[Rfam]
A member of the RNA family "MIR8024 microRNA precursor family" from Solanum tuberosum, 86 nucleotides long. NCBI's taxonomy places the organism under Eukaryota, Viridiplantae, Embryophyta, Solanales, Solanum. Rfam links the family to the GO terms RISC complex and miRNA-mediated post-transcriptional gene silencing.
RNA sequence: UUACAGGAUUUGAAGAAUUCAACUUGCAGACUUGGAGGAUUUGAAGACUUCAACUUGCAGACUUAAAGCAUUCGAAGACUUAAACU
Numbered sequence: 001u002u003a004c005a006g007g008a009u010u011u012g013a014a015g016a017a018u019u020c021a022a023c024u025u026g027c028a029g030a031c032u033u034g035g036a037g038g039a040u041u042u043g044a045a046g047a048c049u050u051c052a053a054c055u056u057g058c059a060g061a062c063u064u065a066a067a068g069c070a071u072u073c074g075a076a077g078a079c080u081u082a083a084a085c086u
Base pairs, nucleotide, nucleotide: 001084002083005080006079009076010075011074012073013072014071018067019066021064025059026058027057028056032053033052034051035050036049037048